Shown here is an 84-nucleotide sequence from Chrysochloris asiatica, a member of the family "mir-632 microRNA precursor family". For this family Rfam cites "Genome-wide comparative analysis of microRNAs in three non-human primates" (Brameier, BMC Res Notes, 2010).
RNA sequence: CCAAUCGCGGGGCCUGACGGGAAGCUGAGCAGCGAACGAGGCCGUCGGCCAUUUUGUGCCUGUUUCCUGUGGGACGCGGUGGUA
Numbered sequence: 001c002c003a004a005u006c007g008c009g010g011g012g013c014c015u016g017a018c019g020g021g022a023a024g025c026u027g028a029g030c031a032g033c034g035a036a037c038g039a040g041g042c043c044g045u046c047g048g049c050c051a052u053u054u055u056g057u058g059c060c061u062g063u064u065u066c067c068u069g070u071g072g073g074a075c076g077c078g079g080u081g082g083u084a
Stems, first nucleotide, its partner, number of pairs: 002082001004080005010075001014073002017070009027060001029057004034050001037047003